This 130-nucleotide RNA from Vitis rotundifolia belongs to the Rfam family "MIR845_2 microRNA precursor family". A reference for the family is Jaillon et al. (2007), "The grapevine genome sequence suggests ancestral hexaploidization in major angiosperm phyla", Nature. Taxonomically the source falls in Vitis (Eukaryota, Viridiplantae, Tracheophyta, Euphyllophyta).

[Rfam]
RNA sequence: AGAACACACAUUAAUGAUCCCUAGGCCAUGGGAUAAAGAAAAACCCUACAAUACCAAGUUCGCAUAGCCUAGGAUGGUUCUAGCACAAUUACUAACCUAUGGCUCUAAUAUCAGUUGAAGGGAAAAACCC
Numbered sequence: 001a002g003a004a005c006a007c008a009c010a011u012u013a014a015u016g017a018u019c020c021c022u023a024g025g026c027c028a029u030g031g032g033a034u035a036a037a038g039a040a041a042a043a044c045c046c047u048a049c050a051a052u053a054c055c056a057a058g059u060u061c062g063c064a065u066a067g068c069c070u071a072g073g074a075u076g077g078u079u080c081u082a083g084c085a086c087a088a089u090u091a092c093u094a095a096c097c098u099a100u101g102g103c104u105c106u107a108a109u110a111u112c113a114g115u116u117g118a119a120g121g122g123a124a125a126a127a128c129c130c
Base pairs, nucleotide, nucleotide: 009120011118012117013116014115015114022107023106024105025103026102027101028100029099030098031097032096047085053078055076056075059072060071062069